Source information: The record is a 70-nucleotide RNA from Lepisosteus oculatus, which matches "mir-338 microRNA precursor family" in Rfam. It scores 74 bits against the family's covariance model. On this family, see Chen et al., Genes Dev 2005: "The developmental miRNA profiles of zebrafish as determined by small RNA cloning". Its family is annotated with miRNA-mediated post-transcriptional gene silencing and RISC complex in the Gene Ontology.

RNA sequence: CUGGAAACAAUAUCCUGAUGCUGAACGAGUGUGUUGGGAAAAGCUCCAGCAUCAGUGAUUUUGUUGCUAG
Numbered sequence: 001c002u003g004g005a006a007a008c009a010a011u012a013u014c015c016u017g018a019u020g021c022u023g024a025a026c027g028a029g030u031g032u033g034u035u036g037g038g039a040a041a042a043g044c045u046c047c048a049g050c051a052u053c054a055g056u057g058a059u060u061u062u063g064u065u066g067c068u069a070g
Base pairs, nucleotide, nucleotide: 006065007064008063009062010061012059013058014057015055016054017053018052019051020050021049022048023047